[Rfam]
RNA: Bacterial RNase P class A
RNA sequence: GAGUUGGCCGAGGUAACCGCUGCUUUGUCGUAAGUAGUAACUUGUAAAGUUAUUAAACGGGCAAAGGGGAGGAAAGUCCGGGCUUCAUAGGGUAGGGUGCCAGGUAACGCCUGGGGAGCGUGAGCUCACGACAAGUGCAGCAGAGAGAAGACCGCCUAAGUUUGUUUCGACAAACCGGUAAGGCUGAAAGGGUGCGGUAAGAGCGCACCGCGCUACUGGUAACAGUAUGCGGCGAGGUAAACUCCACCCGAAGCAAGGCCAAAUAGGCCCCUGUGGACGCGACCCGCGUUUGGGGGCGGGUAGGCUGCUUGAGCCUAAGAGCGAUCUUAGGCCUAGAGGAAUGGUUACCACUCGCAAGAGUACAGAACCCGGCUUAUGCGGCCAACUCCACC
Numbered sequence: 001g002a003g004u005u006g007g008c009c010g011a012g013g014u015a016a017c018c019g020c021u022g023c024u025u026u027g028u029c030g031u032a033a034g035u036a037g038u039a040a041c042u043u044g045u046a047a048a049g050u051u052a053u054u055a056a057a058c059g060g061g062c063a064a065a066g067g068g069g070a071g072g073a074a075a076g077u078c079c080g081g082g083c084u085u086c087a088u089a090g091g092g093u094a095g096g097g098u099g100c101c102a103g104g105u106a107a108c109g110c111c112u113g114g115g116g117a118g119c120g121u122g123a124g125c126u127c128a129c130g131a132c133a134a135g136u137g138c139a140g141c142a143g144a145g146a147g148a149a150g151a152c153c154g155c156c157u158a159a160g161u162u163u164g165u166u167u168c169g170a171c172a173a174a175c176c177g178g179u180a181a182g183g184c185u186g187a188a189a190g191g192g193u194g195c196g197g198u199a200a201g202a203g204c205g206c207a208c209c210g211c212g213c214u215a216c217u218g219g220u221a222a223c224a225g226u227a228u229g230c231g232g233c234g235a236g237g238u239a240a241a242c243u244c245c246a247c248c249c250g251a252a253g254c255a256a257g258g259c260c261a262a263a264u265a266g267g268c269c270c271c272u273g274u275g276g277a278c279g280c281g282a283c284c285c286g287c288g289u290u291u292g293g294g295g296g297c298g299g300g301u302a303g304g305c306u307g308c309u310u311g312a313g314c315c316u317a318a319g320a321g322c323g324a325u326c327u328u329a330g331g332c333c334u335a336g337a338g339g340a341a342u343g344g345u346u347a348c349c350a351c352u353c354g355c356a357a358g359a360g361u362a363c364a365g366a367a368c369c370c371g372g373c374u375u376a377u378g379c380g381g382c383c384a385a386c387u388c389c390a391c392c
Stems, first nucleotide, its partner, number of pairs: 001388010011377001012349007020069002023066006074375003078372005083253004090285004095249005100114005115129001116127004130244002135242002137238002152183002154179003160175006191209006210233001211231003214227005257306004267297006276290005313332008